[Rfam]
A member of the RNA family "Archaeal signal recognition particle RNA" from Halococcus saccharolyticus, 314 nucleotides long. The family's RNA type in Rfam is non-coding RNA gene. A search with the family's covariance model found it, with a score of 184 bits. The literature on the family includes a 2002 paper in Curr Opin Struct Biol by Wild et al., "Towards the structure of the mammalian signal recognition particle".
RNA sequence: AAUCGGACUAGGCCGGGCAGUUAGGCCCUGCUCGUUACCCGCGAUACGGUCUUCAGCGGGGGCCGAACCCCGGGUGCGUCCGUGCCGACCGGCACGGGCCCCGCAAGCCAACGUAGAAGCCUCGUCCGUCGGGGGCGGCGGUCCGCGGCACCUCGUCCGCAGGGACGACUCGCCGCGGUUAACCGGCGGCAGUCCGUCAGGCGCGGAAGCGAGCAGCGGACCGCCGGACAGCCGUCGCUCGCCGGGUCGCGGGGUGGAGGCGGCGCGCGGGUCUCCCCGUGCCGGAACGCCGGGCAACCCCGGACCGUCCGAUC
Numbered sequence: 001a002a003u004c005g006g007a008c009u010a011g012g013c014c015g016g017g018c019a020g021u022u023a024g025g026c027c028c029u030g031c032u033c034g035u036u037a038c039c040c041g042c043g044a045u046a047c048g049g050u051c052u053u054c055a056g057c058g059g060g061g062g063c064c065g066a067a068c069c070c071c072g073g074g075u076g077c078g079u080c081c082g083u084g085c086c087g088a089c090c091g092g093c094a095c096g097g098g099c100c101c102c103g104c105a106a107g108c109c110a111a112c113g114u115a116g117a118a119g120c121c122u123c124g125u126c127c128g129u130c131g132g133g134g135g136c137g138g139c140g141g142u143c144c145g146c147g148g149c150a151c152c153u154c155g156u157c158c159g160c161a162g163g164g165a166c167g168a169c170u171c172g173c174c175g176c177g178g179u180u181a182a183c184c185g186g187c188g189g190c191a192g193u194c195c196g197u198c199a200g201g202c203g204c205g206g207a208a209g210c211g212a213g214c215a216g217c218g219g220a221c222c223g224c225c226g227g228a229c230a231g232c233c234g235u236c237g238c239u240c241g242c243c244g245g246g247u248c249g250c251g252g253g254g255u256g257g258a259g260g261c262g263g264c265g266c267g268c269g270g271g272u273c274u275c276c277c278c279g280u281g282c283c284g285g286a287a288c289g290c291c292g293g294g295c296a297a298c299c300c301c302g303g304a305c306c307g308u309c310c311g312a313u314c
Stems, first nucleotide, its partner, number of pairs: 002313007011064004015033006038060005070303005078295004082290003089285010100271005107264003112259001114257001119255007126245003130241004134236005140229001141180001143178007153168006183227007193220005202211003
Dot-bracket structure: .(((((((..((((((((((.......))))))....(((((.............))))))))).....(((((...(((((((....((((((((((.(((((..(((..(.(....((((((((((.(((((((((.((.(((((((...((((((....))))))...))))))).)..(((((((...(((((....(((....)))....)))))))))))).)..))))).)))).)))...))))))).).)..)))..)))))....))))))))))..))).))))...)))))...))))))).